[Rfam]
Record summary:
This 73-nucleotide RNA sequence from Halorhodospira halophila belongs to the Rfam family "tRNA". Taxonomically the source falls in Halorhodospira halophila (Bacteria, Pseudomonadati, Pseudomonadota, Ectothiorhodospiraceae). The family's consensus secondary structure is taken from published work.
RNA sequence: GCCGGUGUAGCUCAGUUGGUAGAGCAGCCGAUUCGUAAUCGGCAGGUCGGUGGUUCAAGUCCACUCGCCGGCA
Numbered sequence: 001g002c003c004g005g006u007g008u009a010g011c012u013c014a015g016u017u018g019g020u021a022g023a024g025c026a027g028c029c030g031a032u033u034c035g036u037a038a039u040c041g042g043c044a045g046g047u048c049g050g051u052g053g054u055u056c057a058a059g060u061c062c063a064c065u066c067g068c069c070g071g072c073a
Stems, first nucleotide, its partner, number of pairs: 001072007010025004027043005049065005
By type it is a transfer RNA.